[Rfam]
Annotation
chrB-b RNA: a 56-nucleotide RNA from Paracidovorax valerianellae. The organism belongs to Paracidovorax, within Bacteria.
RNA sequence: CCGGGAAAAACAGCCUCCCGUCCCGCAAGGGGUGACGGUGUCCGUCCAAGCGCUGC
Numbered sequence: 001c002c003g004g005g006a007a008a009a010a011c012a013g014c015c016u017c018c019c020g021u022c023c024c025g026c027a028a029g030g031g032g033u034g035a036c037g038g039u040g041u042c043c044g045u046c047c048a049a050g051c052g053c054u055g056c
Base pairs, nucleotide, nucleotide: 002020003019004018005017006016011055012054013053014052034046035045036044037043038042